Shown here is a 494-nucleotide part of an RNA from Rhizoclosmatium globosum, a member of the family "Eukaryotic large subunit ribosomal RNA". Rfam links the family to the GO terms ribosome and structural constituent of ribosome. NCBI's taxonomy places the organism under Eukaryota, Fungi, Chytridiomycotina, Chytriomycetaceae, Rhizoclosmatium. The base pairs follow the family's consensus structure, which is taken from published work.

RNA sequence: CCCUCCGAAGUUUCCCUCAGGAUAGCAGAAGAUCAAUAAAUCAGUUUUACGAGGUAAAGCGAAUGAUUAGAGGCCUUGGGGAUGAAACAUCCUUAACCUAUUCUCAAACUUUAAAUAUGUAAGACUCUGGGGUUUCUUAACUGAACUCUGGAAAUGAAUGAGAUCUUCUAGUGGGCCAUUUUUGGUAAGCAGAACUGGCGAUGCGGGAUGAACCGAACGUCGAGUUAAAGUGCCUAAAUACACGCUCAUGUAGACACCACAAAAGGUGUUAGUUCAUCUAGACAGCAGGACGGUGGCCAUGGAAGUCGGAAUCCGCUAAGGAGUGUGUAACAACUCACCUGCCGAAUGAACUAGCCCUGAAAAUGGAUGGCGCUUAAGCGUGUUACUUAUACUCGGCCCUUAUGGCAGAUACGAUGCUAUAAGGAGUAGGAGGGCGUGGAGGUCGUGUCGAAGCGUUCGGGGUGACCCGGCGUGGAACGGCUUCUAGUGCAGAU
Numbered sequence: 001c002c003c004u005c006c007g008a009a010g011u012u013u014c015c016c017u018c019a020g021g022a023u024a025g026c027a028g029a030a031g032a033u034c035a036a037u038a039a040a041u042c043a044g045u046u047u048u049a050c051g052a053g054g055u056a057a058a059g060c061g062a063a064u065g066a067u068u069a070g071a072g073g074c075c076u077u078g079g080g081g082a083u084g085a086a087a088c089a090u091c092c093u094u095a096a097c098c099u100a101u102u103c104u105c106a107a108a109c110u111u112u113a114a115a116u117a118u119g120u121a122a123g124a125c126u127c128u129g130g131g132g133u134u135u136c137u138u139a140a141c142u143g144a145a146c147u148c149u150g151g152a153a154a155u156g157a158a159u160g161a162g163a164u165c166u167u168c169u170a171g172u173g174g175g176c177c178a179u180u181u182u183u184g185g186u187a188a189g190c191a192g193a194a195c196u197g198g199c200g201a202u203g204c205g206g207g208a209u210g211a212a213c214c215g216a217a218c219g220u221c222g223a224g225u226u227a228a229a230g231u232g233c234c235u236a237a238a239u240a241c242a243c244g245c246u247c248a249u250g251u252a253g254a255c256a257c258c259a260c261a262a263a264a265g266g267u268g269u270u271a272g273u274u275c276a277u278c279u280a281g282a283c284a285g286c287a288g289g290a291c292g293g294u295g296g297c298c299a300u301g302g303a304a305g306u307c308g309g310a311a312u313c314c315g316c317u318a319a320g321g322a323g324u325g326u327g328u329a330a331c332a333a334c335u336c337a338c339c340u341g342c343c344g345a346a347u348g349a350a351c352u353a354g355c356c357c358u359g360a361a362a363a364u365g366g367a368u369g370g371c372g373c374u375u376a377a378g379c380g381u382g383u384u385a386c387u388u389a390u391a392c393u394c395g396g397c398c399c400u401u402a403u404g405g406c407a408g409a410u411a412c413g414a415u416g417c418u419a420u421a422a423g424g425a426g427u428a429g430g431a432g433g434g435c436g437u438g439g440a441g442g443u444c445g446u447g448u449c450g451a452a453g454c455g456u457u458c459g460g461g462g463u464g465a466c467c468c469g470g471c472g473u474g475g476a477a478c479g480g481c482u483u484c485u486a487g488u489g490c491a492g493a494u
Stems, first nucleotide, its partner, number of pairs: 001434006011024001013022003027169007045124007057112001058110002064106003069101001071099003076096006083089001126152009175199004180194005204215003219397005225391001229387003238384001240383001243380003264358003268355010285342005291315003297309002316320001321336001325334002398424009435489001437486010453473002459468003